[Rfam]
Rfam assigns this 116-nucleotide RNA to the family "Ribosomal S15 leader". Rfam classes the family as a cis-regulatory leader. Its family is annotated with regulation of translation, ncRNA-mediated in the Gene Ontology. A reference for the family is Benard et al. (1996), "Pseudoknot and translational control in the expression of the S15 ribosomal protein", Biochimie.

RNA sequence: UUUCACGGCUGAAUUAGAGAUUGGCUGUGAACCUUUAAACACUCUACUGGAGUAAUACCAUGUCUCUAAAUGCUGAGAUCAAAGCUCAAAUCGUUGCUGACAACGCUCGUUGCGCC
Numbered sequence: 001u002u003u004c005a006c007g008g009c010u011g012a013a014u015u016a017g018a019g020a021u022u023g024g025c026u027g028u029g030a031a032c033c034u035u036u037a038a039a040c041a042c043u044c045u046a047c048u049g050g051a052g053u054a055a056u057a058c059c060a061u062g063u064c065u066c067u068a069a070a071u072g073c074u075g076a077g078a079u080c081a082a083a084g085c086u087c088a089a090a091u092c093g094u095u096g097c098u099g100a101c102a103a104c105g106c107u108c109g110u111u112g113c114g115c116c
Base pairs, nucleotide, nucleotide: 007026008025009024010023011022012021048068049067050066051065052064